[Rfam]
RNA sequence: GGGAGUAGCAAGUAUUCAAAUGAGAACUUUGAAGACUGAAGUGGAGAAGGGUUCCAUGUGAACAGCAUUUGGACAUGGGUUAGCCGGUCCUAAGCGCCAGCUUAACUGCGCUUCGUGAGGUGGGCGUUUACUCGCCCCGGUCUGCGAAAGGGAAUCGGGUUAACAUUCCCGAGCCGGGUCGUGGAUACUGGGUGGCAACACAAGUGAACCCUCCGACACAGGCUGAAGUUCCGGGAAGCGUUGUCUUUGCUUUUUAACAAUACGGCAGACCCUGGAAUCAAAUUACUUGGCGAUAGGGUUGUUCGUUUGGAAUAGCACCUUGGUUUUCAGGGUGUCCGGUGCGCUUCAGACUGUCCUUGAAAAGGGGGGGGAACGUUGUUAUUCGCACCCCUGGCCGUACCAAUAACCGCAUCAGGUCUCCAAGGUUAGCAGCCUCUGGUCAAU
Numbered sequence: 001g002g003g004a005g006u007a008g009c010a011a012g013u014a015u016u017c018a019a020a021u022g023a024g025a026a027c028u029u030u031g032a033a034g035a036c037u038g039a040a041g042u043g044g045a046g047a048a049g050g051g052u053u054c055c056a057u058g059u060g061a062a063c064a065g066c067a068u069u070u071g072g073a074c075a076u077g078g079g080u081u082a083g084c085c086g087g088u089c090c091u092a093a094g095c096g097c098c099a100g101c102u103u104a105a106c107u108g109c110g111c112u113u114c115g116u117g118a119g120g121u122g123g124g125c126g127u128u129u130a131c132u133c134g135c136c137c138c139g140g141u142c143u144g145c146g147a148a149a150g151g152g153a154a155u156c157g158g159g160u161u162a163a164c165a166u167u168c169c170c171g172a173g174c175c176g177g178g179u180c181g182u183g184g185a186u187a188c189u190g191g192g193u194g195g196c197a198a199c200a201c202a203a204g205u206g207a208a209c210c211c212u213c214c215g216a217c218a219c220a221g222g223c224u225g226a227a228g229u230u231c232c233g234g235g236a237a238g239c240g241u242u243g244u245c246u247u248u249g250c251u252u253u254u255u256a257a258c259a260a261u262a263c264g265g266c267a268g269a270c271c272c273u274g275g276a277a278u279c280a281a282a283u284u285a286c287u288u289g290g291c292g293a294u295a296g297g298g299u300u301g302u303u304c305g306u307u308u309g310g311a312a313u314a315g316c317a318c319c320u321u322g323g324u325u326u327u328c329a330g331g332g333u334g335u336c337c338g339g340u341g342c343g344c345u346u347c348a349g350a351c352u353g354u355c356c357u358u359g360a361a362a363a364g365g366g367g368g369g370g371g372a373a374c375g376u377u378g379u380u381a382u383u384c385g386c387a388c389c390c391c392u393g394g395c396c397g398u399a400c401c402a403a404u405a406a407c408c409g410c411a412u413c414a415g416g417u418c419u420c421c422a423a424g425g426u427u428a429g430c431a432g433c434c435u436c437u438g439g440u441c442a443a444u
Stems, first nucleotide, its partner, number of pairs: 015033006034441004043421004049401002054078006063071002085397003089151002094145002096112001098110001100109002119138002155172005175393004181388003185382002192201003209369006218354004223349007231339003234254006258309003262306002269299006278290004316334007407416002423435004
RNA: Eukaryotic large subunit ribosomal RNA, nucleotides 1470 to 1913